[Rfam]
RNA sequence: AAAAAGGGCUUCUGCCGUGUGUGGCACGGGGGGGCCACGCGCCACCUCUGCGGAAUCGACAUCAAGAGAUUUCGGAAGCACAAUUUUUGUAGAAGAGGGCUGCCGGUAACCGUUUGUUCUGGCACCCCG
Numbered sequence: 001a002a003a004a005a006g007g008g009c010u011u012c013u014g015c016c017g018u019g020u021g022u023g024g025c026a027c028g029g030g031g032g033g034g035c036c037a038c039g040c041g042c043c044a045c046c047u048c049u050g051c052g053g054a055a056u057c058g059a060c061a062u063c064a065a066g067a068g069a070u071u072u073c074g075g076a077a078g079c080a081c082a083a084u085u086u087u088u089g090u091a092g093a094a095g096a097g098g099g100c101u102g103c104c105g106g107u108a109a110c111c112g113u114u115u116g117u118u119c120u121g122g123c124a125c126c127c128c129g
Stems, first nucleotide, its partner, number of pairs: 008079005013026005027050006034042002051074007097127003102123005108118003